Overview
mir-7563 microRNA precursor family: a 76-nucleotide RNA from Ameiurus melas. The source organism's lineage runs through Eukaryota, Eumetazoa, Bilateria, Vertebrata and Ameiurus.
[Rfam]
RNA sequence: ACCGCGUACUUACCUACUAUAUAGCAGCUGAGAUGCAUGUAUUUCACCUACUAUAUAAUAGGUAAGUACAUGGUUU
Numbered sequence: 001a002c003c004g005c006g007u008a009c010u011u012a013c014c015u016a017c018u019a020u021a022u023a024g025c026a027g028c029u030g031a032g033a034u035g036c037a038u039g040u041a042u043u044u045c046a047c048c049u050a051c052u053a054u055a056u057a058a059u060a061g062g063u064a065a066g067u068a069c070a071u072g073g074u075u076u
Stems, first nucleotide, its partner, number of pairs: 001074004006069010018057007026049002029046003033042003